[Rfam]
RNA sequence: GGAUCGGGAGGCGGCCCUUGGGAAGGCCGCCGGGAAUGGAUCCGGACCCCCCUGUCUCGAUAGGCGCGCUGCCGAGGCCCGGCGGCAGCGGCG
Numbered sequence: 001g002g003a004u005c006g007g008g009a010g011g012c013g014g015c016c017c018u019u020g021g022g023a024a025g026g027c028c029g030c031c032g033g034g035a036a037u038g039g040a041u042c043c044g045g046a047c048c049c050c051c052c053u054g055u056c057u058c059g060a061u062a063g064g065c066g067c068g069c070u071g072c073c074g075a076g077g078c079c080c081g082g083c084g085g086c087a088g089c090g091g092c093g
Stems, first nucleotide, its partner, number of pairs: 001043005010031007065093003070087005
A member of the RNA family "Rhodo-rpoB RNA" from Pseudooceanicola pacificus, 93 nucleotides long. The organism belongs to Pseudooceanicola, within Bacteria. Rfam classes the family as a cis-regulatory element. The match comes from Rfam's covariance-model search (68 bits).